[Rfam]
RNA sequence: CACCCUUGCCUUUUAGGCAUCCUCUCCCAAAACUUUCACGGGCCGCCUUUGGGCGGCCCUUUUUUUGUCCGUUU
Number, nucleotide and partner (000 for none) at each position: 001c000002a000003c000004c000005c000006u000007u000008g018009c017010c016011u015012u000013u000014u000015a011016g010017g009018c008019a000020u000021c000022c000023u000024c000025u000026c000027c000028c000029a000030a000031a000032a000033c000034u000035u000036u000037c000038a000039c000040g059041g058042g057043c056044c055045g054046c053047c052048u000049u000050u000051g000052g047053g046054c045055g044056g043057c042058c041059c040060u000061u000062u000063u000064u000065u000066u000067g000068u000069c000070c000071g000072u000073u000074u000

The family of this 74-nucleotide RNA from Sphingopyxis alaskensis is "Makes More Granules Regulator RNA (mmgR)". The sequence is in the family's curated seed alignment. SuhB later renamed mmgR (makes more granules regulator) was a putative non-coding RNA found multiple times in the Agrobacterium tumefaciens genome and related alpha-proteobacteria. Other non-coding RNAs uncovered in the same analysis include: speF, ybhL, metA, and serC.Several studies inSinorhizobium meliloti showed that suhB element is indeed a non-coding RNA:firstly it was detected on Northern blot and called Sm8RNA, secondly in an RNAseq study referred to as SmelC689.The mutant phenotype's (strain lacking the small RNA) cytoplasm contains higher content of polyhydroxybutyrate (PBH)storage granules than wild type strain. The sRNA is required to limit the PBH intracellular accumulation when the nitrogen-fixing Sinorhizobium meliloti is under condition of surplus carbon in relation to nitrogen. It has been renamed to mmgR. Further study confirmed that mmgR fine-tunes the regulation of PBH storage.Northern blot confirmed the expression of the sRNA in other rhizobia species. MmgR homologues were found in most alpha-proteobacteria. Its family is annotated with DNA-templated transcription, termination, response to nitrogen compound and protein binding in the Gene Ontology. NCBI's taxonomy places the organism under Bacteria, Sphingomonadales, Sphingopyxidaceae, Sphingopyxis, Sphingopyxis alaskensis.